[Rfam]
RNA sequence: AAGAGUGAUGAAGGUAUACCAUCUUUCGGCUGAAAACGAAAUGCUGAUGCUUUUUAUCGCUGAACUCUG
Numbered sequence: 001a002a003g004a005g006u007g008a009u010g011a012a013g014g015u016a017u018a019c020c021a022u023c024u025u026u027c028g029g030c031u032g033a034a035a036a037c038g039a040a041a042u043g044c045u046g047a048u049g050c051u052u053u054u055u056a057u058c059g060c061u062g063a064a065c066u067c068u069g
Stems, first nucleotide, its partner, number of pairs: 002068005
Shown here is a 69-nucleotide RNA from Plectus sambesii, a member of the family "Small nucleolar RNA SNORD2". It scores 37 bits against the family's covariance model. Rfam links the family to the GO terms nucleolus and RNA processing. The family's RNA type in Rfam is C/D-box small nucleolar RNA. Taxonomically the source falls in Plectus (Eukaryota, Bilateria, Plectina, Plectidae). For this family Rfam cites "Identification of a novel box C/D snoRNA from mouse nucleolar cDNA library" (Zhou et al., Gene, 2004).